[Rfam]
RNA: Streptomyces sRNA scr5239
RNA sequence: CCUCCGCUCUUCCCGCACAGAAGAGCGGACCUGGGGGCCCGGCGUCUCUGCCCUGAUCACGCCGAGCCCUCCAGAUCGGCCGGUGGGAACCGCACACCCGGCGGCCGAUGCGUCUCCGGACCGCGGUGCCGGGCGGGCUGAGGGUCCCGUGCCGGUGU
Numbered sequence: 001c002c003u004c005c006g007c008u009c010u011u012c013c014c015g016c017a018c019a020g021a022a023g024a025g026c027g028g029a030c031c032u033g034g035g036g037g038c039c040c041g042g043c044g045u046c047u048c049u050g051c052c053c054u055g056a057u058c059a060c061g062c063c064g065a066g067c068c069c070u071c072c073a074g075a076u077c078g079g080c081c082g083g084u085g086g087g088a089a090c091c092g093c094a095c096a097c098c099c100g101g102c103g104g105c106c107g108a109u110g111c112g113u114c115u116c117c118g119g120a121c122c123g124c125g126g127u128g129c130c131g132g133g134c135g136g137g138c139u140g141a142g143g144g145u146c147c148c149g150u151g152c153c154g155g156u157g158u
Stems, first nucleotide, its partner, number of pairs: 003029004008024005033071005040064003044060001045056002076108007085099003114126002117123002131152001133150005